[Rfam]
RNA: Small nucleolar RNA Z278
Organism: Dendrobium nobile
RNA sequence: ACCAAUGAUGCUUUGUUCCAAUUAGUGAGGUUUAGCAUGUUCCGAGACCCUGUUUGUCAGGGAGAACCCCUUGGGACUGCUAAAUUCAAAUGAUCUUAUUGGUAUUUGCUGAGAU
Number, nucleotide and partner (000 for none) at each position: 001a115002c000003c113004a000005a000006u000007g000008a000009u000010g000011c000012u000013u000014u000015g000016u000017u000018c000019c000020a000021a000022u000023u000024a000025g000026u000027g000028a000029g000030g000031u000032u000033u000034a000035g000036c000037a000038u000039g000040u000041u000042c000043c000044g000045a000046g000047a000048c062049c061050c060051u059052g058053u000054u000055u000056g000057u000058c052059a051060g050061g049062g048063a000064g000065a000066a000067c000068c000069c000070c000071u000072u000073g000074g000075g000076a000077c000078u000079g000080c000081u000082a000083a000084a000085u000086u000087c000088a000089a000090a000091u000092g000093a000094u000095c000096u000097u000098a000099u000100u000101g000102g000103u000104a000105u000106u000107u000108g000109c000110u000111g000112a000113g003114a000115u001